Makes More Granules Regulator RNA (mmgR): an 81-nucleotide RNA sequence from Novosphingobium sp.
Pairs were carried over by alignment from the consensus structure.
The match comes from Rfam's covariance-model search (44 bits).

Nucleotides: 081
Base pairs, nucleotide, nucleotide: 008018009017010016011015045066046065047064048063049062050061051060052059053058
Number, partner (000 for none) and nucleotide at each position: 001000g002000g003000g004000g005000c006000g007000u008018g009017c010016c011015u012000u013000u014000c015011a016010g017009g018008c019000a020000u021000c022000c023000u024000c025000u026000c027000c028000c029000a030000a031000u032000u033000u034000a035000a036000a037000c038000u039000a040000u041000c042000a043000a044000a045066g046065g047064g048063c049062u050061g051060g052059u053058c054000u055000u056000c057000g058053g059052a060051c061050c062049g063048g064047c065046c066045c067000a068000u069000u070000u071000u072000u073000u074000u075000g076000c077000g078000c079000g080000c081000u